[Rfam]
The record is a 138-nucleotide sequence from Paenochrobactrum gallinarii, which matches "Alphaproteobacterial sRNA ar35" in Rfam. The pairing is the family consensus, mapped onto this sequence. The match comes from Rfam's covariance-model search (99 bits).

RNA sequence: UCAGGCAUUGCUGAUGAGCGCUUAUCUCACAGCGCUCGCAACUGCCUAAUGUCAUUUAGAGCCUUUGACCACGGAUGUACUGGCACUGAGUUUAAAUGACGAACUGAAGGUCGGUGCAGAGUUGCCCCGGCCUUUUUU
Numbered sequence: 001u002c003a004g005g006c007a008u009u010g011c012u013g014a015u016g017a018g019c020g021c022u023u024a025u026c027u028c029a030c031a032g033c034g035c036u037c038g039c040a041a042c043u044g045c046c047u048a049a050u051g052u053c054a055u056u057u058a059g060a061g062c063c064u065u066u067g068a069c070c071a072c073g074g075a076u077g078u079a080c081u082g083g084c085a086c087u088g089a090g091u092u093u094a095a096a097u098g099a100c101g102a103a104c105u106g107a108a109g110g111u112c113g114g115u116g117c118a119g120a121g122u123u124g125c126c127c128c129g130g131c132c133u134u135u136u137u138u
Base pairs, nucleotide, nucleotide: 003047004046005045006044008041009040016037017036018035019034020033051100052099053098054097055096056095057094060091063088066085067084069083070082071081103138106135107134108133109132110131111130112129113128114127116125117124118123